[Rfam]
RNA sequence: AGCUCAUCAAGAGAGGUGGAGGGACUGGCCCAAUGAAACCCGGCAACCCGCAAAAUGCGAAGGUGCCAAUUCCAGAUGCAGAGGUUGUCUGCAUAAGAUGAGAG
Numbered sequence: 001a002g003c004u005c006a007u008c009a010a011g012a013g014a015g016g017u018g019g020a021g022g023g024a025c026u027g028g029c030c031c032a033a034u035g036a037a038a039c040c041c042g043g044c045a046a047c048c049c050g051c052a053a054a055a056u057g058c059g060a061a062g063g064u065g066c067c068a069a070u071u072c073c074a075g076a077u078g079c080a081g082a083g084g085u086u087g088u089c090u091g092c093a094u095a096a097g098a099u100g101a102g103a104g
Base pairs, nucleotide, nucleotide: 003102004101005100006099007098008097013041015040016039017038021031022030023029025075026074027073028072042067043066044065045064047063048062049059050058051057052056071096077093078092079091080090081089082088
RNA: SAM riboswitch aptamer (S box leader)
Organism: Defluviitalea raffinosedens